[Rfam]
About this RNA: This 161-nucleotide RNA sequence from bacterium B13(2017) belongs to the Rfam family "6S / SsrS RNA". Rfam describes the family as follows. E. coli 6S RNA was the first non coding RNA to be sequenced, but its function was unknown until recently. It consists of 184 nucleotides that fold into an extended hairpin structure with a large single-stranded internal bulge. The 6S RNA specifically associates with RNA polymerase holoenzyme containing the sigma70 specificity factor. By type it is a non-coding RNA gene.
RNA sequence: AAAACCCUGUAUUGUUCGUGAACUUAAAUAUUUCCUUGAGCCAACAUUAGUUUAUUGGGGACUUGGGGUUUGGCAGAGACUUAAGUGAUCUUUGUUAACAGAGUGCCCACUUAGAGUCAGAGCUCUAAGCGAAAUGUUAUUACGGCAGAUACAGGGUUUUU
Numbered sequence: 001a002a003a004a005c006c007c008u009g010u011a012u013u014g015u016u017c018g019u020g021a022a023c024u025u026a027a028a029u030a031u032u033u034c035c036u037u038g039a040g041c042c043a044a045c046a047u048u049a050g051u052u053u054a055u056u057g058g059g060g061a062c063u064u065g066g067g068g069u070u071u072g073g074c075a076g077a078g079a080c081u082u083a084a085g086u087g088a089u090c091u092u093u094g095u096u097a098a099c100a101g102a103g104u105g106c107c108c109a110c111u112u113a114g115a116g117u118c119a120g121a122g123c124u125c126u127a128a129g130c131g132a133a134a135u136g137u138u139a140u141u142a143c144g145g146c147a148g149a150u151a152c153a154g155g156g157u158u159u160u161u
Base pairs, nucleotide, nucleotide: 002159003158004157005156006155007154008153009152010151011150012148013147014146015145017144018143019142032131034129036127038125039124040123041122057108058107059106061104062103063102064101066099071097072096073095074094075093076092077091078090079089